[Rfam]
RNA: ASdes TB sRNA
RNA sequence: AGGGCGACGGGGUCGACGGCCCGGGUGGUGAUGAGGUAGUCGCGCAUGGCGAUGCCGUGCCGGUUCUC
Numbered sequence: 001a002g003g004g005c006g007a008c009g010g011g012g013u014c015g016a017c018g019g020c021c022c023g024g025g026u027g028g029u030g031a032u033g034a035g036g037u038a039g040u041c042g043c044g045c046a047u048g049g050c051g052a053u054g055c056c057g058u059g060c061c062g063g064u065u066c067u068c
Stems, first nucleotide, its partner, number of pairs: 005062002008059002012029002016026002035056004040052004